[Rfam]
RNA sequence: CCGUGCUAGACGGGGAGGUAGCGGUGCCCUGUUGCCCGCAAUCCGCUGUAGCGGGGUUGAAUCCCUGUUAGAGGUACUGUCGAUGUGAGGUCUGGCCUUUACACGUGGUGUUGAGAGUCGGGUCCUUCGCAAUGAGCACCAGUGAACCCGGUCAGGUCCGGAAGGAAGCAGCCGUAAGCAGGACCGCCCAUGUGCCGAGGGGUUGCCUAACUUGAGCUAACGAUAAAGGUACGUUCGUAUCGCUUUAUCAAUAACAGGUGCACGG
Numbered sequence: 001c002c003g004u005g006c007u008a009g010a011c012g013g014g015g016a017g018g019u020a021g022c023g024g025u026g027c028c029c030u031g032u033u034g035c036c037c038g039c040a041a042u043c044c045g046c047u048g049u050a051g052c053g054g055g056g057u058u059g060a061a062u063c064c065c066u067g068u069u070a071g072a073g074g075u076a077c078u079g080u081c082g083a084u085g086u087g088a089g090g091u092c093u094g095g096c097c098u099u100u101a102c103a104c105g106u107g108g109u110g111u112u113g114a115g116a117g118u119c120g121g122g123u124c125c126u127u128c129g130c131a132a133u134g135a136g137c138a139c140c141a142g143u144g145a146a147c148c149c150g151g152u153c154a155g156g157u158c159c160g161g162a163a164g165g166a167a168g169c170a171g172c173c174g175u176a177a178g179c180a181g182g183a184c185c186g187c188c189c190a191u192g193u194g195c196c197g198a199g200g201g202g203u204u205g206c207c208u209a210a211c212u213u214g215a216g217c218u219a220a221c222g223a224u225a226a227a228g229g230u231a232c233g234u235u236c237g238u239a240u241c242g243c244u245u246u247a248u249c250a251a252u253a254a255c256a257g258g259u260g261c262a263c264g265g
Base pairs, nucleotide, nucleotide: 001265002264003263004262005261006260009058010057011056012030013029014028015027017025019023035055036054037053038052039051064258065257066256067255068254069253070252073249074248075247076246081242082241083240084239085238086237087236088235089234093231094230097228098227099226100225101224105221106220107218108217109216115213116212117211118210120208121207122206123205124201125200126199127198128197129196130192131191133190134189136187137186139182140181142179143178149174150173151172152171157166158165159164
Shown here is a 265-nucleotide RNA sequence from Paenibacillus sp. HGF7, a member of the family "Bacterial large signal recognition particle RNA".
Taxonomically the source falls in Paenibacillus (Bacteria, Bacillota, Bacilli, Paenibacillaceae).
Pairs were carried over by alignment from the consensus structure, which is taken from published work.
The family is grouped with related families in Rfam's "SRP clan".
The literature on the family includes a 2003 paper in Nucleic Acids Res by Rosenblad et al., "SRPDB: Signal Recognition Particle Database".